RNA sequence: UUUCGGUCCCCUCGCAAUGAUACUUUGUGAACCCGGUCAGGCCUGGAAGGGAGCAGCCGCAGCAAACGACUCAUGUGCCGAGGUGUGGCUGGGAGGG
Numbered sequence: 001u002u003u004c005g006g007u008c009c010c011c012u013c014g015c016a017a018u019g020a021u022a023c024u025u026u027g028u029g030a031a032c033c034c035g036g037u038c039a040g041g042c043c044u045g046g047a048a049g050g051g052a053g054c055a056g057c058c059g060c061a062g063c064a065a066a067c068g069a070c071u072c073a074u075g076u077g078c079c080g081a082g083g084u085g086u087g088g089c090u091g092g093g094a095g096g097g
Stems, first nucleotide, its partner, number of pairs: 004091005010083005015075001017074004024066005034059004042051003